[Rfam]
RNA sequence: AGCAGUGAUGAUUUUAGAUUCAACUUACUUGGAAUUGCUGACUUUACGUCAGGCUCUGUCCAGGAAAUGACAUCUGUUAAUCUUCUCUCUGAGCUG
Numbered sequence: 001a002g003c004a005g006u007g008a009u010g011a012u013u014u015u016a017g018a019u020u021c022a023a024c025u026u027a028c029u030u031g032g033a034a035u036u037g038c039u040g041a042c043u044u045u046a047c048g049u050c051a052g053g054c055u056c057u058g059u060c061c062a063g064g065a066a067a068u069g070a071c072a073u074c075u076g077u078u079a080a081u082c083u084u085c086u087c088u089c090u091g092a093g094c095u096g
Stems, first nucleotide, its partner, number of pairs: 002094002037054003
RNA: Z30 small nucleolar RNA